Shown here is an 85-nucleotide RNA from Zostera marina, a member of the family "Small nucleolar RNA R16".
Pairs were carried over by alignment from the consensus structure, which was predicted with PFOLD.
[Rfam]
RNA sequence: UUUGGCAAGUGAUGCCUGAUCUUAUCCUACACACCGAAUCGUCUGUGUCGAUUAUCGAUCUCAUCUUUUAUUAUCUGAUGCCAUG
Numbered sequence: 001u002u003u004g005g006c007a008a009g010u011g012a013u014g015c016c017u018g019a020u021c022u023u024a025u026c027c028u029a030c031a032c033a034c035c036g037a038a039u040c041g042u043c044u045g046u047g048u049c050g051a052u053u054a055u056c057g058a059u060c061u062c063a064u065c066u067u068u069u070a071u072u073a074u075c076u077g078a079u080g081c082c083a084u085g
Base pairs, nucleotide, nucleotide: 003083004082005081006080007079

On this family, see Marker et al., Curr Biol 2002: "Experimental RNomics: identification of 140 candidates for small non-messenger RNAs in the plant Arabidopsis thaliana". Rfam 15.1 lists 884 matches to the family in 222 species.